[Rfam]
RNA sequence: UGUGCAAGGGCAAGUAUUACCCCUUGCACACUUCCGUCGCACGUCGCA
Numbered sequence: 001u002g003u004g005c006a007a008g009g010g011c012a013a014g015u016a017u018u019a020c021c022c023c024u025u026g027c028a029c030a031c032u033u034c035c036g037u038c039g040c041a042c043g044u045c046g047c048a
Stems, first nucleotide, its partner, number of pairs: 001030010